[Rfam]
RNA sequence: CCCGCCAUGCCUCUCACUGAAGCACACUUUGGCGGGU
Number, nucleotide and partner (000 for none) at each position: 001c036002c035003c034004g033005c032006c031007a000008u024009g023010c022011c000012u000013c000014u000015c000016a000017c000018u000019g000020a000021a000022g010023c009024a008025c000026a000027c000028u000029u000030u000031g006032g005033c004034g003035g002036g001037u000

This 37-nucleotide RNA from Halomonas huangheensis belongs to the Rfam family "abiF RNA".
A search with the family's covariance model found it, with a score of 41 bits.
The family's consensus secondary structure is taken from published work.
NCBI's taxonomy places the organism under Bacteria, Pseudomonadati, Oceanospirillales, Halomonadaceae, Halomonas.
Actinobacteria, Bacteroidetes, Clostridia, Proteobacteria, one Clostridia phage.
The family has 126 seed sequences and 282 matches in Rfam 15.1.